[Rfam]
RNA: ALIL pseudoknot
RNA sequence: GGCUUUUUUCGCCGCGGCGGAGCUCGACCGCAAGAUCAGGUGAGCACGGCGGUGCUCGUCGACUACAUCGACGAGCACCGUGUGCGGUUCGGGGUCGAGCCGAUCUGUCGGGUCCUGCGUGAGGCAGGCCUGGCGAUCGCCCCG
Dot-bracket structure: ................((((.......))))..........................................................(((((......((.((.((((((((............)))))))))).)))))))
Numbered sequence: 001g002g003c004u005u006u007u008u009u010c011g012c013c014g015c016g017g018c019g020g021a022g023c024u025c026g027a028c029c030g031c032a033a034g035a036u037c038a039g040g041u042g043a044g045c046a047c048g049g050c051g052g053u054g055c056u057c058g059u060c061g062a063c064u065a066c067a068u069c070g071a072c073g074a075g076c077a078c079c080g081u082g083u084g085c086g087g088u089u090c091g092g093g094g095u096c097g098a099g100c101c102g103a104u105c106u107g108u109c110g111g112g113u114c115c116u117g118c119g120u121g122a123g124g125c126a127g128g129c130c131u132g133g134c135g136a137u138c139g140c141c142c143c144g
Stems, first nucleotide, its partner, number of pairs: 017031004090144005101139002104136002107134008